Source information: This 95-nucleotide sequence from Nicotiana attenuata belongs to the Rfam family "MIR6152 microRNA precursor family". The family has 2 seed sequences and 5,807 matches in Rfam 15.1. The source organism's lineage runs through Eukaryota, Streptophyta, eudicotyledons, lamiids and Nicotiana.
RNA sequence: UAGACAGAUUUUUGUAUUCGAUUGUAUUCACGGCAUGAAACAGGGGAUUACGAUGUUUUUAAACGGAAGUGAAUCAAUUAACAUAAUAGACUCAU
Numbered sequence: 001u002a003g004a005c006a007g008a009u010u011u012u013u014g015u016a017u018u019c020g021a022u023u024g025u026a027u028u029c030a031c032g033g034c035a036u037g038a039a040a041c042a043g044g045g046g047a048u049u050a051c052g053a054u055g056u057u058u059u060u061a062a063a064c065g066g067a068a069g070u071g072a073a074u075c076a077a078u079u080a081a082c083a084u085a086a087u088a089g090a091c092u093c094a095u
Base pairs, nucleotide, nucleotide: 003093004092009089010088012086013085014084015083017081018080020079021078023076024075026074027073028072029071030070031069034065036063037059038058039057040056041055042054

Its family is annotated with RISC complex and miRNA-mediated post-transcriptional gene silencing in the Gene Ontology.